Shown here is an 81-nucleotide RNA sequence from Chanos chanos, a member of the family "mir-27 microRNA precursor family". Gene Ontology terms of the family: RISC complex and miRNA-mediated post-transcriptional gene silencing. The source organism's lineage runs through Eukaryota, Bilateria, Chordata, Vertebrata and Chanos.
RNA sequence: UGAAGGUGCAGAGCUUAGCUAAUUAGUGAGCACUGAUCGUUUUGAAUUUUCUGUUCACAGUGGCUAAGUUCAGCAUCUGAG
Numbered sequence: 001u002g003a004a005g006g007u008g009c010a011g012a013g014c015u016u017a018g019c020u021a022a023u024u025a026g027u028g029a030g031c032a033c034u035g036a037u038c039g040u041u042u043u044g045a046a047u048u049u050u051c052u053g054u055u056c057a058c059a060g061u062g063g064c065u066a067a068g069u070u071c072a073g074c075a076u077c078u079g080a081g
Stems, first nucleotide, its partner, number of pairs: 011071010026058007